[Rfam]
RNA: sraL Hfq binding RNA
RNA sequence: CCCCCCCCCUUUUAAAUUUUUUGGGGGGGUUUUUUUAAAAAAAGGGGGGGGGGAAACGGGAAAACCCUUUUUUUUAAAAAGGGAAAAAGGGGAAAAAAAAAGGGGAAAAAAAAAAAAAGGGUUUUAAAAAAAAAAAACCCCCAACCCCUUUUUUUUUUU
Numbered sequence: 001c002c003c004c005c006c007c008c009c010u011u012u013u014a015a016a017u018u019u020u021u022u023g024g025g026g027g028g029g030u031u032u033u034u035u036u037a038a039a040a041a042a043a044g045g046g047g048g049g050g051g052g053g054a055a056a057c058g059g060g061a062a063a064a065c066c067c068u069u070u071u072u073u074u075u076a077a078a079a080a081g082g083g084a085a086a087a088a089g090g091g092g093a094a095a096a097a098a099a100a101a102g103g104g105g106a107a108a109a110a111a112a113a114a115a116a117a118a119g120g121g122u123u124u125u126a127a128a129a130a131a132a133a134a135a136a137a138c139c140c141c142c143a144a145c146c147c148c149u150u151u152u153u154u155u156u157u158u159u
Stems, first nucleotide, its partner, number of pairs: 002052007014022002033043004058067003068085006109158013